[Rfam]
RNA sequence: CGGGAGCAACCGACGUUAGGGAAUUCGGCAAGUUAGUCCCGUACGUUCGCAAUAAGGGAUGCCUGCCACGGAAAGUGGCAGGUCGCAGUGACUCGGGCGCUCCAACUGUCUAGUAACAACAUAGGUGACCGCAAAUCCGUAAGGACUCGUACGGUCACUGAAUCCUGCCCAGUGCAGGUAUCUGAACACCCCGUACAAGGGGACGAAGGACCUGUUAACGGCGGGGGUAACUAUGACCCUCUUAAGGUAGCGUAGUACCUUGCCGCUUUAGUAGCGGCUUGCAUGAAUGGAUCAAUGAGAGCGCCACUGUCCCAACGUUGGGCCCGGUGAACUGUACAUUCCAGUGCGGAGUCUGGAGA
Numbered sequence: 001c002g003g004g005a006g007c008a009a010c011c012g013a014c015g016u017u018a019g020g021g022a023a024u025u026c027g028g029c030a031a032g033u034u035a036g037u038c039c040c041g042u043a044c045g046u047u048c049g050c051a052a053u054a055a056g057g058g059a060u061g062c063c064u065g066c067c068a069c070g071g072a073a074a075g076u077g078g079c080a081g082g083u084c085g086c087a088g089u090g091a092c093u094c095g096g097g098c099g100c101u102c103c104a105a106c107u108g109u110c111u112a113g114u115a116a117c118a119a120c121a122u123a124g125g126u127g128a129c130c131g132c133a134a135a136u137c138c139g140u141a142a143g144g145a146c147u148c149g150u151a152c153g154g155u156c157a158c159u160g161a162a163u164c165c166u167g168c169c170c171a172g173u174g175c176a177g178g179u180a181u182c183u184g185a186a187c188a189c190c191c192c193g194u195a196c197a198a199g200g201g202g203a204c205g206a207a208g209g210a211c212c213u214g215u216u217a218a219c220g221g222c223g224g225g226g227g228u229a230a231c232u233a234u235g236a237c238c239c240u241c242u243u244a245a246g247g248u249a250g251c252g253u254a255g256u257a258c259c260u261u262g263c264c265g266c267u268u269u270a271g272u273a274g275c276g277g278c279u280u281g282c283a284u285g286a287a288u289g290g291a292u293c294a295a296u297g298a299g300a301g302c303g304c305c306a307c308u309g310u311c312c313c314a315a316c317g318u319u320g321g322g323c324c325c326g327g328u329g330a331a332c333u334g335u336a337c338a339u340u341c342c343a344g345u346g347c348g349g350a351g352u353c354u355g356g357a358g359a
Stems, first nucleotide, its partner, number of pairs: 001326004010321008019312003036060005045050001061083009084088001096305007103297002107121003124159008132149001136145003162292004167222003172219002174215005181210003189202004223241006242246001262278006340357005
RNA: Archaeal large subunit ribosomal RNA, nucleotides 1720 to 2078